[Rfam]
The record is a 159-nucleotide RNA sequence from Ruminococcaceae bacterium BL-4, which matches "Ribosomal protein L10 leader" in Rfam. A search with the family's covariance model found it, with a score of 63 bits. Taxonomically the source falls in Oscillospiraceae (Bacteria, Bacillota, Clostridia, Eubacteriales). Rfam classes the family as a cis-regulatory leader. A reference for the family is Yakhnin et al. (2015), "Ribosomal protein L10(L12)4 autoregulates expression of the Bacillus subtilis rplJL operon by a transcription attenuation mechanism", Nucleic Acids Res.
RNA sequence: UAAUAAAGCUGUUUUUAUUCAAAGACAGCAGGUGCAUUUUGCAUAAAGGGGAAUCCCACCUGCCGAGGAUAAAGCAAAUACGUUUGUUUAUACAAUUUGUAUAAAAUGUAAAUUUGCCUUCUCCGCGGUUAACGUGGAGAAGGCUUUUUGUAUAAUGCG
Numbered sequence: 001u002a003a004u005a006a007a008g009c010u011g012u013u014u015u016u017a018u019u020c021a022a023a024g025a026c027a028g029c030a031g032g033u034g035c036a037u038u039u040u041g042c043a044u045a046a047a048g049g050g051g052a053a054u055c056c057c058a059c060c061u062g063c064c065g066a067g068g069a070u071a072a073a074g075c076a077a078a079u080a081c082g083u084u085u086g087u088u089u090a091u092a093c094a095a096u097u098u099g100u101a102u103a104a105a106a107u108g109u110a111a112a113u114u115u116g117c118c119u120u121c122u123c124c125g126c127g128g129u130u131a132a133c134g135u136g137g138a139g140a141a142g143g144c145u146u147u148u149u150g151u152a153u154a155a156u157g158c159g
Stems, first nucleotide, its partner, number of pairs: 028063006034042003116144012